[Rfam]
RNA sequence: CGCGGGGUGUCAGCAAAACCGUUACCAUUACUGAGUUUAGUAAUGGUAAUGGUUCUUCUGCCAUCUUGCCC
Numbered sequence: 001c002g003c004g005g006g007g008u009g010u011c012a013g014c015a016a017a018a019c020c021g022u023u024a025c026c027a028u029u030a031c032u033g034a035g036u037u038u039a040g041u042a043a044u045g046g047u048a049a050u051g052g053u054u055c056u057u058c059u060g061c062c063a064u065c066u067u068g069c070c071c
Stems, first nucleotide, its partner, number of pairs: 007064003011060003017054004022049012